Overview: The record is a 550-nucleotide part of an RNA from Angomonas deanei, which matches "Eukaryotic large subunit ribosomal RNA" in Rfam. The source organism's lineage runs through Eukaryota, Discoba, Kinetoplastea, Strigomonadinae and Angomonas. The match comes from Rfam's covariance-model search (2039 bits).

RNA sequence: UAGAGAAAGGUACACUCAGGGAAGUCGGCAAAAUAGAUGCGUAAGUUCGCAAGAAGCAUUGGCUCUGAGGGCAAAGUCAGAGUCAACCGGCAGGCAAGUGUCCUCUCACGUGCGGCCGUUUGCGGUGGCUGUUUUGGCGGCUUGCUGCCUUGACACCCCGCUGGCGACCGUUUCGUUGUCUGUGAAGGCUACCUGCCCGAGGCGGCGGUCUCCGUCGUCUCACUCUGGCACGGGGUGGCCCCUCGUGGACCACCCCACAAAUUGCCAACUCAGAACUGCUUACGGCGGGGAAUCCAACUGUAUAAUUAAAACAUAGGUUUGUGAUGCAUCCAAGUGGUGUAUGUCGCAAACUGAUUUCUGCCCAGUGCUCUGAAUGUCAACGUGACGAGAUUCACCGACGCGCGGGUAAACGGCGGGAGUAACUAUGACUCUCUUAAGGUAGCCAAAUGCCUCGUCUUCCAAUUAGAGACGCGCAUGAAUGGAUUAAUGAGAUUCCCUCUGUCCCGAGUUACUAUCUAGCGAAACGACAGUCAAGGGAACGGACUUGAAG
Numbered sequence: 001u002a003g004a005g006a007a008a009g010g011u012a013c014a015c016u017c018a019g020g021g022a023a024g025u026c027g028g029c030a031a032a033a034u035a036g037a038u039g040c041g042u043a044a045g046u047u048c049g050c051a052a053g054a055a056g057c058a059u060u061g062g063c064u065c066u067g068a069g070g071g072c073a074a075a076g077u078c079a080g081a082g083u084c085a086a087c088c089g090g091c092a093g094g095c096a097a098g099u100g101u102c103c104u105c106u107c108a109c110g111u112g113c114g115g116c117c118g119u120u121u122g123c124g125g126u127g128g129c130u131g132u133u134u135u136g137g138c139g140g141c142u143u144g145c146u147g148c149c150u151u152g153a154c155a156c157c158c159c160g161c162u163g164g165c166g167a168c169c170g171u172u173u174c175g176u177u178g179u180c181u182g183u184g185a186a187g188g189c190u191a192c193c194u195g196c197c198c199g200a201g202g203c204g205g206c207g208g209u210c211u212c213c214g215u216c217g218u219c220u221c222a223c224u225c226u227g228g229c230a231c232g233g234g235g236u237g238g239c240c241c242c243u244c245g246u247g248g249a250c251c252a253c254c255c256c257a258c259a260a261a262u263u264g265c266c267a268a269c270u271c272a273g274a275a276c277u278g279c280u281u282a283c284g285g286c287g288g289g290g291a292a293u294c295c296a297a298c299u300g301u302a303u304a305a306u307u308a309a310a311a312c313a314u315a316g317g318u319u320u321g322u323g324a325u326g327c328a329u330c331c332a333a334g335u336g337g338u339g340u341a342u343g344u345c346g347c348a349a350a351c352u353g354a355u356u357u358c359u360g361c362c363c364a365g366u367g368c369u370c371u372g373a374a375u376g377u378c379a380a381c382g383u384g385a386c387g388a389g390a391u392u393c394a395c396c397g398a399c400g401c402g403c404g405g406g407u408a409a410a411c412g413g414c415g416g417g418a419g420u421a422a423c424u425a426u427g428a429c430u431c432u433c434u435u436a437a438g439g440u441a442g443c444c445a446a447a448u449g450c451c452u453c454g455u456c457u458u459c460c461a462a463u464u465a466g467a468g469a470c471g472c473g474c475a476u477g478a479a480u481g482g483a484u485u486a487a488u489g490a491g492a493u494u495c496c497c498u499c500u501g502u503c504c505c506g507a508g509u510u511a512c513u514a515u516c517u518a519g520c521g522a523a524a525c526g527a528c529a530g531u532c533a534a535g536g537g538a539a540c541g542g543a544c545u546u547g548a549a550g
Base pairs, nucleotide, nucleotide: 001518002517003516004515009513010512011511012510014509015508016507017506019504020503021502036060037059038058039057040056045050061277062276064274065273066272067271068270069269070266071265072264073263074262076255080251083248084247278283288497289496290495291494292493293492294491295489296488299313300312301311316352317351318350319349320348321347322346323345325341327339328338329337330336356483357482358481360414361413362412365411366410367407368406369405370404372403375402376401377400382395383394384393385392415433416432417431418430419429420428434438454470455469456468457467458466531548532547533546534545535544